The family of this 116-nucleotide RNA from Legionella fallonii is "Group II catalytic intron D1-D4-2". Rfam links the family to the GO term Group II intron splicing. NCBI's taxonomy places the organism under Bacteria, Pseudomonadati, Legionellales, Legionella, Legionella fallonii. Pairs were carried over by alignment from the consensus structure.
[Rfam]
RNA sequence: GGUGGUAGAUCCAUCGAGAUCGAUCACCAGCGAUAGGUCUCAAACCACGUCAUGCUGCUGUUGUUAAGAGCAAGGGUCGUGAGUGAUGAGGAUAGUCAGGCAAUGCUCUGGCGAGG
Numbered sequence: 001g002g003u004g005g006u007a008g009a010u011c012c013a014u015c016g017a018g019a020u021c022g023a024u025c026a027c028c029a030g031c032g033a034u035a036g037g038u039c040u041c042a043a044a045c046c047a048c049g050u051c052a053u054g055c056u057g058c059u060g061u062u063g064u065u066a067a068g069a070g071c072a073a074g075g076g077u078c079g080u081g082a083g084u085g086a087u088g089a090g091g092a093u094a095g096u097c098a099g100g101c102a103a104u105g106c107u108c109u110g111g112c113g114a115g116g
Stems, first nucleotide, its partner, number of pairs: 001015005016041006023034003045116002048091001050089004054080002057077003061073004095112006